Shown here is a 163-nucleotide RNA from Leptolyngbyaceae cyanobacterium M65_K2018_010, a member of the family "c-di-AMP riboswitch aptamer (ydaO/yuaA leader)".

RNA sequence: CGAACAAGUCAGCCUAGUCUAGCGGUCCCACAGCCUGCUAGAGCGGGGGAACCAACAAAGGGGCGUGUUUCCGAGUUCUAAAACCCCACUGGGGGUCAUCGGAAAGGGACAUCUCUCAGUCCUAGCCCGGCAGCUAACCUCGUCGGCAUUGAGGGGAGACUGA
Numbered sequence: 001c002g003a004a005c006a007a008g009u010c011a012g013c014c015u016a017g018u019c020u021a022g023c024g025g026u027c028c029c030a031c032a033g034c035c036u037g038c039u040a041g042a043g044c045g046g047g048g049g050a051a052c053c054a055a056c057a058a059a060g061g062g063g064c065g066u067g068u069u070u071c072c073g074a075g076u077u078c079u080a081a082a083a084c085c086c087c088a089c090u091g092g093g094g095g096u097c098a099u100c101g102g103a104a105a106g107g108g109a110c111a112u113c114u115c116u117c118a119g120u121c122c123u124a125g126c127c128c129g130g131c132a133g134c135u136a137a138c139c140u141c142g143u144c145g146g147c148a149u150u151g152a153g154g155g156g157a158g159a160c161u162g163a
Stems, first nucleotide, its partner, number of pairs: 012147003018042008043143006053060001061128003069104006107122004